[Rfam]
RNA sequence: GGCGUAUUUUGCGAUGGCGGAGCUCGACCGCCGGUCGAAGUGAUGGUGGAUUUCAUUGAGGCGCAUCGUGAUGCGCAUGGGGUCGAGCCGAUCUGCACGGUGCUGCCGAUCGCCCCC
Numbered sequence: 001g002g003c004g005u006a007u008u009u010u011g012c013g014a015u016g017g018c019g020g021a022g023c024u025c026g027a028c029c030g031c032c033g034g035u036c037g038a039a040g041u042g043a044u045g046g047u048g049g050a051u052u053u054c055a056u057u058g059a060g061g062c063g064c065a066u067c068g069u070g071a072u073g074c075g076c077a078u079g080g081g082g083u084c085g086a087g088c089c090g091a092u093c094u095g096c097a098c099g100g101u102g103c104u105g106c107c108g109a110u111c112g113c114c115c116c117c
Stems, first nucleotide, its partner, number of pairs: 016032005079116004089112002092109002095106003